[Rfam]
A member of the RNA family "Bacterial large subunit ribosomal RNA" from Urbifossiella limnaea, 231 nucleotides of a longer RNA. It scores 2502 bits against the family's covariance model.

Nucleotides: 231
Base pairs, nucleotide, nucleotide: 005088006087007086008085009084010083011082012081013080014079015078016077017076020044021043022042023041026038027037028036048055049054058070059069060068061067091229092228094226098219099218100217101216102215103214107195110192111191112190113189114188115187116186117185118183120152121151123149127144128143129142130141131140132139156180157179158178160177161176162175163174164173197207198206
Number, partner (000 for none) and nucleotide at each position: 001000g002000a003000c004000u005088u006087g007086c008085c009084g010083u011082c012081g013080g014079c015078g016077g017076c018000a019000u020044g021043g022042u023041u024000a025000a026038g027037g028036g029000c030000c031000u032000u033000u034000g035000g036028c037027c038026c039000g040000c041023a042022g043021c044020c045000g046000c047000a048055g049054g050000g051000a052000a053000a054049c055048c056000g057000a058070g059069u060068c061067c062000c063000a064000a065000c066000g067061g068060g069059g070058c071000g072000u073000u074000g075000g076017g077016u078015c079014g080013u081012c082011g083010g084009c085008g086007g087006c088005a089000g090000a091229c092228g093000c094226g095000a096000a097000a098219c099218c100217a101216c102215g103214u104000g105000a106000c107195c108000g109000a110192c111191g112190c113189c114188c115187g116186g117185c118183c119000a120152g121151g122000a123149c124000g125000a126000a127144g128143g129142u130141g131140g132139g133000g134000u135000a136000a137000c138000a139132c140131c141130c142129a143128c144127u145000g146000g147000a148000c149123g150000a151121c152120c153000g154000a155000a156180c157179u158178c159000a160177c161176g162175a163174g164173u165000g166000u167000u168000g169000a170000a171000a172000a173164a174163c175162u176161c177160g178158g179157g180156g181000a182000u183118g184000a185117g186116c187115c188114g189113g190112g191111c192110g193000g194000g195107g196000g197207a198206g199000u200000g201000a202000a203000a204000g205000u206198c207197u208000a209000a210000u211000c212000a213000a214103a215102c216101g217100u218099g219098g220000a221000g222000a223000u224000a225000g226094c227000u228092c229091g230000u231000u